[Rfam]
RNA: Glycine riboswitch aptamer
Organism: Shouchella oshimensis
RNA sequence: AUGAUAGUAAAGGGAGAGACUAUGUGAUUCAUAAGCAUAGCGCCGAAGGAGCAAACAUAUGUGAAUCUCUCAGGCAAAAAAGACUUUUACUGGACG
Numbered sequence: 001a002u003g004a005u006a007g008u009a010a011a012g013g014g015a016g017a018g019a020c021u022a023u024g025u026g027a028u029u030c031a032u033a034a035g036c037a038u039a040g041c042g043c044c045g046a047a048g049g050a051g052c053a054a055a056c057a058u059a060u061g062u063g064a065a066u067c068u069c070u071c072a073g074g075c076a077a078a079a080a081a082g083a084c085u086u087u088u089a090c091u092g093g094a095c096g
Stems, first nucleotide, its partner, number of pairs: 006091008020040006042075003045071002049069003055062002